[Rfam]
RNA sequence: GGAUGAAGCGUCCAAAGGGAUCGCAUUGAUCCAUCAUUCCUUCCAUUUUUUCAUGCAUGGCUGGUCUUCGUCGUCUGCAAGGACUUGUCGAUGGAUCAAUGCGAUCCUUUUGGAGGCUUCCCC
Numbered sequence: 001g002g003a004u005g006a007a008g009c010g011u012c013c014a015a016a017g018g019g020a021u022c023g024c025a026u027u028g029a030u031c032c033a034u035c036a037u038u039c040c041u042u043c044c045a046u047u048u049u050u051u052c053a054u055g056c057a058u059g060g061c062u063g064g065u066c067u068u069c070g071u072c073g074u075c076u077g078c079a080a081g082g083a084c085u086u087g088u089c090g091a092u093g094g095a096u097c098a099a100u101g102c103g104a105u106c107c108u109u110u111u112g113g114a115g116g117c118u119u120c121c122c123c
Base pairs, nucleotide, nucleotide: 002123005120006119008117009116011114012113013112014111015110016109017108018107019106020105021104023102024101025100026098028097029096030095031094032093
The record is a 123-nucleotide RNA from Zea mays, which matches "mir-393 microRNA precursor family" in Rfam. The match comes from Rfam's covariance-model search (68 bits). For this family Rfam cites "Role of microRNAs and other sRNAs of plants in their changing environments" (Kruszka et al., J Plant Physiol, 2012).